[Rfam]
RNA sequence: GGAUCCAUGAUGACAACAAGUCUCUGAGGACACUGAUCGACUCUAAAUUAUGCCAUUCUAAUCUCAUGAUGAGAGGUCC
Numbered sequence: 001g002g003a004u005c006c007a008u009g010a011u012g013a014c015a016a017c018a019a020g021u022c023u024c025u026g027a028g029g030a031c032a033c034u035g036a037u038c039g040a041c042u043c044u045a046a047a048u049u050a051u052g053c054c055a056u057u058c059u060a061a062u063c064u065c066a067u068g069a070u071g072a073g074a075g076g077u078c079c
Stems, first nucleotide, its partner, number of pairs: 001079005
The family of this 79-nucleotide sequence from Mesocricetus auratus is "Small nucleolar RNA SNORD109A". Humans have two copies of the SNORD109 gene, SNORD109A and SNORD109B. It is annotated as a C/D-box small nucleolar RNA. The literature on the family includes a 2001 paper in Hum Mol Genet by Runte et al., "The IC-SNURF-SNRPN transcript serves as a host for multiple small nucleolar RNA species and as an antisense RNA for UBE3A". NCBI's taxonomy places the organism under Eukaryota, Euteleostomi, Mammalia, Eutheria, Mesocricetus. A search with the family's covariance model found it, with a score of 40 bits.